[Rfam]
Shown here is a 98-nucleotide sequence from Photobacterium aphoticum, a member of the family "TPP riboswitch aptamer (THI element)".
Its family is annotated with thiamine pyrophosphate binding in the Gene Ontology.
Rfam's curators write: Vitamin B(1) in its active form thiamin pyrophosphate (TPP) is an essential coenzyme that is synthesised by coupling of pyrimidine and thiazole moieties in bacteria.
The base pairs follow the family's consensus structure, which is taken from published work.
RNA sequence: CUCAACUUGUCGGAGUGCCACUUGGCUGAGACCGCAUUGCGGGAUCCGUAGAACCUGAUCAGGCUAAUACCUGCGAAGGGAACAAGAGAAUGUUAUCU
Numbered sequence: 001c002u003c004a005a006c007u008u009g010u011c012g013g014a015g016u017g018c019c020a021c022u023u024g025g026c027u028g029a030g031a032c033c034g035c036a037u038u039g040c041g042g043g044a045u046c047c048g049u050a051g052a053a054c055c056u057g058a059u060c061a062g063g064c065u066a067a068u069a070c071c072u073g074c075g076a077a078g079g080g081a082a083c084a085a086g087a088g089a090a091u092g093u094u095a096u097c098u
Stems, first nucleotide, its partner, number of pairs: 006086005011048004016042001017026003033041003054079003060073004